[Rfam]
RNA sequence: GGUAUUGUUUGCCCCACAAUGAGCCCCGGAAACUCAAGUGUAUGUCAAACAUCGA
Numbered sequence: 001g002g003u004a005u006u007g008u009u010u011g012c013c014c015c016a017c018a019a020u021g022a023g024c025c026c027c028g029g030a031a032a033c034u035c036a037a038g039u040g041u042a043u044g045u046c047a048a049a050c051a052u053c054g055a
Base pairs, nucleotide, nucleotide: 006051007050008049009048010047011046016041017040018039020036021035022034023033
RNA: Ribosomal protein L13 leader